[Rfam]
RNA sequence: UAAUUUGCUGAUGCAGCAUCAUCAAGAUUCUCAUAAAUUCCUAAUUUAUCAGGGUUUGUGAAUCUUGAUGCUGCUGCACCCGCACAUAA
Number, nucleotide and partner (000 for none) at each position: 001u000002a000003a000004u000005u000006u000007g000008c000009u000010g080011a000012u078013g077014c076015a075016g074017c073018a072019u000020c070021a069022u068023c067024a066025a065026g064027a063028u062029u061030c060031u000032c058033a057034u000035a000036a000037a000038u000039u000040c000041c000042u000043a000044a000045u000046u000047u000048a000049u000050c000051a000052g000053g000054g000055u000056u000057u033058g032059u000060g030061a029062a028063u027064c026065u025066u024067g023068a022069u021070g020071c000072u018073g017074c016075u015076g014077c013078a012079c000080c010081c000082g000083c000084a000085c000086a000087u000088a000089a000
RNA: mir-172 microRNA precursor family
Organism: Arachis hypogaea